[Rfam]
RNA sequence: CUGCUUCUGCCUCGUCUGCGUCCGUUCCUCUGUAGCGUGUGCUUUCCGGGUUCGUGCCGGACCUACCAUCUAUACCAGCUAGACGCCCCUUAGUCAUCGUGCUGCGUCCUGGGGGUUGUCGAAAGUGACGAGCGUACCAUGUUCGGCGUAACACCCGCCGCGAGACUAAGUCGCCGGACUUAACCUCCUGGCUAGAUGGCCCCUUGUGGUUGCAUGCGUUCCGGGGGGUUAUCGAAGGAAGUCGAGCGUGCAACCGUGAGGAAAAGGUUCCGGGAAGAAGCUGCCGGACUUCACUCGCAUUCCGGCUAGAUGGCCUUCAGCUGUGUGAUUCGGGGGGUUGUCGAAAGAAGAUGGAUCAUGCUUCCGUGGACAGUGGGGUCUCGUAAUGAUUACCAAAUCGUUGCGAGCCUUGCUUUUAUGCAUGUGGGUUCCGCGCGAGCAUUCAUGUCACUGGGUGACGCCGACGUGGACGGGCCACCUAACCCGGAAUUGAACCCGCAAGGGAUAUCUCCUUAGCCAAAUGCCUCGUCAUCUAAUUAGUGACGCGCAUGAAU
Number, nucleotide and partner (000 for none) at each position: 001c000002u000003g000004c000005u000006u000007c000008u000009g000010c000011c000012u000013c000014g000015u000016c000017u000018g000019c000020g000021u000022c000023c000024g000025u000026u000027c000028c000029u000030c000031u000032g000033u000034a000035g000036c000037g000038u000039g000040u000041g000042c000043u000044u000045u000046c000047c000048g000049g000050g000051u000052u000053c000054g000055u000056g000057c000058c000059g000060g000061a000062c000063c000064u000065a000066c000067c000068a000069u000070c000071u000072a000073u000074a000075c000076c000077a000078g000079c000080u000081a000082g000083a000084c000085g000086c000087c000088c000089c000090u000091u000092a000093g000094u000095c000096a000097u000098c000099g000100u000101g000102c000103u000104g000105c000106g000107u000108c000109c000110u000111g000112g000113g000114g000115g000116u000117u000118g000119u000120c000121g000122a000123a000124a000125g000126u000127g000128a000129c000130g000131a000132g000133c000134g000135u000136a000137c000138c000139a000140u000141g000142u000143u000144c000145g000146g000147c000148g000149u000150a000151a000152c000153a000154c000155c000156c000157g000158c000159c000160g000161c000162g000163a000164g000165a000166c000167u000168a000169a000170g000171u000172c000173g000174c000175c000176g000177g000178a000179c000180u000181u000182a000183a000184c000185c000186u000187c000188c000189u000190g000191g000192c000193u000194a000195g000196a000197u000198g000199g000200c000201c000202c000203c000204u000205u000206g000207u000208g000209g000210u000211u000212g000213c000214a000215u000216g000217c000218g000219u000220u000221c000222c000223g000224g000225g000226g000227g000228g000229u000230u000231a000232u000233c000234g000235a000236a000237g000238g000239a000240a000241g000242u000243c000244g000245a000246g000247c000248g000249u000250g000251c000252a000253a000254c000255c000256g000257u000258g000259a000260g000261g000262a000263a000264a000265a000266g000267g000268u000269u000270c000271c000272g000273g000274g000275a000276a000277g000278a000279a000280g000281c000282u000283g000284c000285c000286g000287g000288a000289c000290u000291u000292c000293a000294c000295u000296c000297g000298c000299a000300u000301u000302c000303c000304g000305g000306c000307u000308a000309g000310a000311u000312g000313g000314c000315c000316u000317u000318c000319a000320g000321c000322u000323g000324u000325g000326u000327g000328a000329u000330u000331c000332g000333g000334g000335g000336g000337g000338u000339u000340g000341u000342c000343g000344a000345a000346a000347g000348a000349a000350g000351a000352u000353g000354g000355a000356u000357c000358a000359u000360g000361c000362u000363u000364c000365c000366g000367u000368g000369g000370a000371c000372a000373g000374u000375g000376g000377g000378g000379u000380c000381u000382c000383g000384u000385a000386a000387u000388g000389a000390u000391u000392a000393c000394c000395a000396a000397a000398u000399c000400g000401u000402u000403g000404c000405g000406a000407g000408c000409c000410u000411u000412g000413c000414u000415u000416u000417u000418a000419u000420g000421c000422a000423u000424g000425u000426g000427g000428g000429u000430u000431c000432c000433g000434c000435g000436c000437g000438a000439g000440c000441a000442u000443u000444c000445a000446u000447g000448u000449c000450a000451c000452u000453g000454g000455g000456u000457g000458a000459c000460g000461c000462c000463g000464a000465c000466g000467u000468g000469g000470a000471c000472g000473g000474g000475c000476c000477a000478c000479c000480u000481a000482a000483c000484c000485c000486g000487g000488a000489a000490u000491u000492g000493a000494a000495c000496c000497c000498g000499c000500a000501a000502g000503g000504g000505a000506u000507a000508u000509c000510u000511c000512c000513u000514u000515a000516g000517c000518c000519a000520a000521a000522u000523g000524c000525c000526u000527c000528g544529u543530c542531a541532u540533c000534u000535a000536a000537u000538u000539a000540g532541u531542g530543a529544c528545g000546c000547g000548c000549a000550u000551g000552a000553a000554u000

Overview:
The family of this 554-nucleotide part of an RNA from Acipenser ruthenus is "Eukaryotic large subunit ribosomal RNA". On this family, see Yusupov et al., Science 2001: "Crystal structure of the ribosome at 5.5 A resolution".